Shown here is a 408-nucleotide sequence from Monilinia fructicola, a member of the family "Nuclear RNase P". From the family's description: Ribonuclease P (RNase P) is a ubiquitous endoribonuclease, found in archaea, bacteria and eukarya as well as chloroplasts and mitochondria. Rfam links the family to the GO terms ribonuclease P complex, ribonuclease P activity and tRNA processing. The match comes from Rfam's covariance-model search (44 bits). The family's RNA type in Rfam is ribozyme.

[Rfam]
RNA sequence: GUCCUCAUCAACGCUGCGUUUCUAUGCUACAAACAGAUAAACUUGCUCACCCAAGUAUAUCAGAUCGCUUGCGAUCAUUUAUUUGCAUAUGAGAAAUUCGGAGUACUCUUCAAUUUACCUCGUUCCUUUUCCUUCUGGCAAAGAUGAACAGGUCUGCCCGUGAGGGUUCGGCGUGAUUUCACGUCUGCAAUUGGCAUCAGAAAAGCAGGGCAUGGUCACUCCCUAUAUAUCAAAUCCGCAAGGAGGAGAGAAAAGGGCUGCGUACUAUUGUUCCUUUGGGAGAGCCGUUGCGAAGAUUGUGUGUGCCAAGGCAUGACACUUAAGUGCAAUACGUGGCGUGCUAGGCUUGUUAUUACUUCGGUGAUAAUAAGUUGGGUACAAUUCGAUUCCGAUUACUCUGUUGAGGAC
Numbered sequence: 001g002u003c004c005u006c007a008u009c010a011a012c013g014c015u016g017c018g019u020u021u022c023u024a025u026g027c028u029a030c031a032a033a034c035a036g037a038u039a040a041a042c043u044u045g046c047u048c049a050c051c052c053a054a055g056u057a058u059a060u061c062a063g064a065u066c067g068c069u070u071g072c073g074a075u076c077a078u079u080u081a082u083u084u085g086c087a088u089a090u091g092a093g094a095a096a097u098u099c100g101g102a103g104u105a106c107u108c109u110u111c112a113a114u115u116u117a118c119c120u121c122g123u124u125c126c127u128u129u130u131c132c133u134u135c136u137g138g139c140a141a142a143g144a145u146g147a148a149c150a151g152g153u154c155u156g157c158c159c160g161u162g163a164g165g166g167u168u169c170g171g172c173g174u175g176a177u178u179u180c181a182c183g184u185c186u187g188c189a190a191u192u193g194g195c196a197u198c199a200g201a202a203a204a205g206c207a208g209g210g211c212a213u214g215g216u217c218a219c220u221c222c223c224u225a226u227a228u229a230u231c232a233a234a235u236c237c238g239c240a241a242g243g244a245g246g247a248g249a250g251a252a253a254a255g256g257g258c259u260g261c262g263u264a265c266u267a268u269u270g271u272u273c274c275u276u277u278g279g280g281a282g283a284g285c286c287g288u289u290g291c292g293a294a295g296a297u298u299g300u301g302u303g304u305g306c307c308a309a310g311g312c313a314u315g316a317c318a319c320u321u322a323a324g325u326g327c328a329a330u331a332c333g334u335g336g337c338g339u340g341c342u343a344g345g346c347u348u349g350u351u352a353u354u355a356c357u358u359c360g361g362u363g364a365u366a367a368u369a370a371g372u373u374g375g376g377u378a379c380a381a382u383u384c385g386a387u388u389c390c391g392a393u394u395a396c397u398c399u400g401u402u403g404a405g406g407a408c
Stems, first nucleotide, its partner, number of pairs: 001408004009400002013337007023089004036076002099391005108295004156167004170185005187291004193286003207275003338379005344373012